[Rfam]
RNA sequence: CCGCCCACACCGGGGAGCCCCACGAUAAGGGGCUGAGAGGCUGGAUGUAGUCAUGAGGACUGCCGCUCAGCGACCCGCAGAACCUGCUCCGGAUCAUGCCGGCGAAGGGAGGGGCCAAUAUGACGUU
Numbered sequence: 001c002c003g004c005c006c007a008c009a010c011c012g013g014g015g016a017g018c019c020c021c022a023c024g025a026u027a028a029g030g031g032g033c034u035g036a037g038a039g040g041c042u043g044g045a046u047g048u049a050g051u052c053a054u055g056a057g058g059a060c061u062g063c064c065g066c067u068c069a070g071c072g073a074c075c076c077g078c079a080g081a082a083c084c085u086g087c088u089c090c091g092g093a094u095c096a097u098g099c100c101g102g103c104g105a106a107g108g109g110a111g112g113g114g115c116c117a118a119u120a121u122g123a124c125g126u127u
Base pairs, nucleotide, nucleotide: 008113010111011077012076013075014074017033018032019031020030021029040071041070042069043068044067083108084107085106089102090101091100092099

This 127-nucleotide RNA sequence from Candidatus Phycosocius bacilliformis belongs to the Rfam family "TPP riboswitch aptamer (THI element)". The organism belongs to Candidatus Phycosocius, within Bacteria.